t44 RNA: an 87-nucleotide RNA sequence from Tahibacter aquaticus. The family's RNA type in Rfam is small RNA. Pairs were carried over by alignment from the consensus structure, which was predicted with LocARNA. From the family's description: This family consists of a number of bacterial RNA genes of between 135 and 170 bases in length.
[Rfam]
RNA sequence: CGGCAAUCCUGCCGAAUCCACACACGUUCCGUCACCGCUCCGGGGUGCUUCGCAAGAAGUCGGUCGCGGGGGAACGUGGAGGACAAC
Numbered sequence: 001c002g003g004c005a006a007u008c009c010u011g012c013c014g015a016a017u018c019c020a021c022a023c024a025c026g027u028u029c030c031g032u033c034a035c036c037g038c039u040c041c042g043g044g045g046u047g048c049u050u051c052g053c054a055a056g057a058a059g060u061c062g063g064u065c066g067c068g069g070g071g072g073a074a075c076g077u078g079g080a081g082g083a084c085a086a087c
Stems, first nucleotide, its partner, number of pairs: 023078008035069004040063003047060005